RNA sequence: UUUUGCGAUGUGUUCCUAAUAUGUCAAACAAAUGUAUUGGGAACAUUUUGCAUUCGU
Numbered sequence: 001u002u003u004u005g006c007g008a009u010g011u012g013u014u015c016c017u018a019a020u021a022u023g024u025c026a027a028a029c030a031a032a033u034g035u036a037u038u039g040g041g042a043a044c045a046u047u048u049u050g051c052a053u054u055c056g057u
Stems, first nucleotide, its partner, number of pairs: 004052005010046014
The record is a 57-nucleotide sequence from Tupaia belangeri, which matches "mir-450 microRNA precursor family" in Rfam. Gene Ontology terms of the family: miRNA-mediated post-transcriptional gene silencing and RISC complex. The source organism's lineage runs through Eukaryota, Opisthokonta, Euteleostomi, Tupaia and Tupaia belangeri.